Source information
This 340-nucleotide sequence from Algibacter luteus belongs to the Rfam family "Bacterial RNase P class A". The family's RNA type in Rfam is ribozyme.
[Rfam]
RNA sequence: UAAGUAAAUCGCCUUAUCGUUCCGAAGUUAUUUCGGGAAGGAAAGUCCGAACACCGUAGUGCAACAUAGUGGUUAAUGGCCACCAACCGUGAGGUUAGGAAAAGUGCAACAGAAAGAAUGUACAGGUUAUGCUGUAGUGAAAUCAGGUAAACUCUAUGUGGUGCAAUGUCAUGUAUACCAACGUUUGAGGGCUGCACGCCCGAUUGUUGGAGGGUAGGCAGCUAAAGUGUAUUGGUAACAAUGCACUAAGAUAAAUGAUAAGGUAUUUUUGUGCUUGUUUUAGGUAAACUUGAAACGAGUACGGAAUGAACAGAAUUCGGCUUAUAGAUUUACUUGAACA
Numbered sequence: 001u002a003a004g005u006a007a008a009u010c011g012c013c014u015u016a017u018c019g020u021u022c023c024g025a026a027g028u029u030a031u032u033u034c035g036g037g038a039a040g041g042a043a044a045g046u047c048c049g050a051a052c053a054c055c056g057u058a059g060u061g062c063a064a065c066a067u068a069g070u071g072g073u074u075a076a077u078g079g080c081c082a083c084c085a086a087c088c089g090u091g092a093g094g095u096u097a098g099g100a101a102a103a104g105u106g107c108a109a110c111a112g113a114a115a116g117a118a119u120g121u122a123c124a125g126g127u128u129a130u131g132c133u134g135u136a137g138u139g140a141a142a143u144c145a146g147g148u149a150a151a152c153u154c155u156a157u158g159u160g161g162u163g164c165a166a167u168g169u170c171a172u173g174u175a176u177a178c179c180a181a182c183g184u185u186u187g188a189g190g191g192c193u194g195c196a197c198g199c200c201c202g203a204u205u206g207u208u209g210g211a212g213g214g215u216a217g218g219c220a221g222c223u224a225a226a227g228u229g230u231a232u233u234g235g236u237a238a239c240a241a242u243g244c245a246c247u248a249a250g251a252u253a254a255a256u257g258a259u260a261a262g263g264u265a266u267u268u269u270u271g272u273g274c275u276u277g278u279u280u281u282a283g284g285u286a287a288a289c290u291u292g293a294a295a296c297g298a299g300u301a302c303g304g305a306a307u308g309a310a311c312a313g314a315a316u317u318c319g320g321c322u323u324a325u326a327g328a329u330u331u332a333c334u335u336g337a338a339c340a
Base pairs, nucleotide, nucleotide: 001336002335003334004333005332006331007330008329009328010327011325012263013262014261015260016259017258018257020038021037022036023035024034025033026032027031043323044322045321047320048319049318050317051316052163053162054161055160059197060196061195062194064159065158066157067156068155069083070082071081072080073079084098085096086095087094088093099154100153104152105151106148107147121136122135123134124133125132167220168219169218170217178210179209180208181207182206189201190200191199192198227246228245229244230243231242232241233240234239
The source organism's lineage runs through Bacteria, Pseudomonadati, Bacteroidota, Flavobacteriales and Algibacter. A search with the family's covariance model found it, with a score of 199 bits.